U7 small nuclear RNA: a 55-nucleotide RNA from Takifugu rubripes.
The base pairs follow the family's consensus structure, which was predicted with PFOLD.
Lineage of the source: Eukaryota > Metazoa > Gnathostomata > Eurypterygia > Takifugu.
RNA sequence: GAAUGAUUGCUCUUUAGAUAUUUCUCUAGUAGGCUUUUCAUACAGAGAAGCCCCC
Numbered sequence: 001g002a003a004u005g006a007u008u009g010c011u012c013u014u015u016a017g018a019u020a021u022u023u024c025u026c027u028a029g030u031a032g033g034c035u036u037u038u039c040a041u042a043c044a045g046a047g048a049a050g051c052c053c054c055c
Stems, first nucleotide, its partner, number of pairs: 032052008